Rfam assigns this 94-nucleotide RNA sequence from Ligilactobacillus hayakitensis to the family "THF (Tetrahydrofolate) riboswitch aptamer". Tetrahydrofolate (THF) riboswitch was first reported for Ames et al. as an RNA motif in 5' untranslated (5'-UTR)regions of folate transport and biosynthesis genes in Firmicutes genomes. Gene Ontology term of the family: tetrahydrofolate metabolic process.

[Rfam]
RNA sequence: UUAGGGGUAGGAUUUUUUACGUUAAUGACCAACGGAACGGAAUGUGAACGCUGGUAGAAAGAGUAAUCUGCGUUUUAAAUCCGCAUUCACCAAA
Numbered sequence: 001u002u003a004g005g006g007g008u009a010g011g012a013u014u015u016u017u018u019a020c021g022u023u024a025a026u027g028a029c030c031a032a033c034g035g036a037a038c039g040g041a042a043u044g045u046g047a048a049c050g051c052u053g054g055u056a057g058a059a060a061g062a063g064u065a066a067u068c069u070g071c072g073u074u075u076u077a078a079a080u081c082c083g084c085a086u087u088c089a090c091c092a093a094a
Stems, first nucleotide, its partner, number of pairs: 001094002004091002010082006019074001020072003026056002029054003033050002040088005060069003